[Rfam]
RNA sequence: AGCACUAUUUUUAAACCUAUUGAUGGAAAACCUCACCAUCCUAGGUUACACUAUGGUGCAAAAUAAUUUCUUGGCUCUCCUAGCACAGCUGACUGUUCCUUUAUACUGAUGCUGUGGUGGAGUUAAAGAAACAUUA
Numbered sequence: 001a002g003c004a005c006u007a008u009u010u011u012u013a014a015a016c017c018u019a020u021u022g023a024u025g026g027a028a029a030a031c032c033u034c035a036c037c038a039u040c041c042u043a044g045g046u047u048a049c050a051c052u053a054u055g056g057u058g059c060a061a062a063a064u065a066a067u068u069u070c071u072u073g074g075c076u077c078u079c080c081u082a083g084c085a086c087a088g089c090u091g092a093c094u095g096u097u098c099c100u101u102u103a104u105a106c107u108g109a110u111g112c113u114g115u116g117g118u119g120g121a122g123u124u125a126a127a128g129a130a131a132c133a134u135u136a
Stems, first nucleotide, its partner, number of pairs: 002059007014047004022040005067131005073124006079117002083112003086108003092102001
Rfam assigns this 136-nucleotide sequence from Ornithorhynchus anatinus to the family "Small nucleolar RNA SNORA46". It is annotated as an H/ACA-box small nucleolar RNA. About the family: ACA46 is a member of the H/ACA class of snoRNA that guide the sites of modification of uridines to pseudouridines.